[Rfam]
RNA sequence: UGCCCCGGUCAAAAAUGACACACAUGUACCGACACAUCUGUCCGGGUGCCCGCCAAGGCGGGUUGGCAGAUGGGGUACAUGGAGGCCUAAC
Number, nucleotide and partner (000 for none) at each position: 001u000002g000003c000004c000005c000006c000007g000008g000009u000010c000011a000012a000013a000014a000015a000016u000017g000018a000019c000020a000021c000022a000023c081024a080025u079026g078027u077028a076029c075030c074031g000032a000033c000034a000035c072036a071037u070038c069039u068040g067041u066042c065043c000044g000045g000046g000047u000048g063049c062050c061051c060052g059053c000054c000055a000056a000057g000058g000059c052060g051061g050062g049063u048064u000065g042066g041067c040068a039069g038070a037071u036072g035073g000074g030075g029076u028077a027078c026079a025080u024081g023082g000083a000084g000085g000086c000087c000088u000089a000090a000091c000
RNA: t44 RNA
Organism: Thiohalophilus thiocyanatoxydans